RNA: U7 small nuclear RNA
Nucleotides: 056
Base pairs, nucleotide, nucleotide: 033053034052035051036050037049039047040046041045
Number, partner (000 for none) and nucleotide at each position: 001000g002000a003000a004000a005000a006000u007000u008000u009000g010000c011000u012000c013000u014000u015000u016000c017000a018000g019000u020000a021000u022000u023000u024000u025000g026000u027000a028000u029000a030000g031000u032000a033053g034052g035051u036050u037049u038000c039047c040046u041045c042000u043000a044000g045041g046040a047039g048000a049037a050036a051035g052034c053033c054000c055000c056000c